Small nucleolar RNA Z105: a 77-nucleotide sequence from Zingiber officinale. It is annotated as a C/D-box small nucleolar RNA. Rfam 15.1 lists 621 matches to the family in 204 species. Gene Ontology terms of the family: RNA processing and nucleolus. The source organism's lineage runs through Eukaryota, Streptophyta, Spermatophyta, Mesangiospermae and Zingiber.

RNA sequence: UUGGCAUUAUGAUGAAUCUCAUAUCAUUUCUGAGAAUUUUUUUAUCUGACAGAAUUUAAACCUCCUACUCAUUCUGA
Numbered sequence: 001u002u003g004g005c006a007u008u009a010u011g012a013u014g015a016a017u018c019u020c021a022u023a024u025c026a027u028u029u030c031u032g033a034g035a036a037u038u039u040u041u042u043u044a045u046c047u048g049a050c051a052g053a054a055u056u057u058a059a060a061c062c063u064c065c066u067a068c069u070c071a072u073u074c075u076g077a
Base pairs, nucleotide, nucleotide: 006072007071009069029053030052033047034046035045